[Rfam]
RNA: SAM riboswitch aptamer (S box leader)
RNA sequence: UUCUUAUCAAGAGAGGUGGAGGGACUGGCCCUUCGAAGCCUCAGCAACCGUCUGUAAAAGACAAGGUGCUAAUUCCAGCAUAUUGGUCUAUUUGAUCAAUACUUGAGAGAUGAGGA
Numbered sequence: 001u002u003c004u005u006a007u008c009a010a011g012a013g014a015g016g017u018g019g020a021g022g023g024a025c026u027g028g029c030c031c032u033u034c035g036a037a038g039c040c041u042c043a044g045c046a047a048c049c050g051u052c053u054g055u056a057a058a059a060g061a062c063a064a065g066g067u068g069c070u071a072a073u074u075c076c077a078g079c080a081u082a083u084u085g086g087u088c089u090a091u092u093u094g095a096u097c098a099a100u101a102c103u104u105g106a107g108a109g110a111u112g113a114g115g116a
Stems, first nucleotide, its partner, number of pairs: 001116008013042005021031003025078004043070004048066002050062004074108001079105002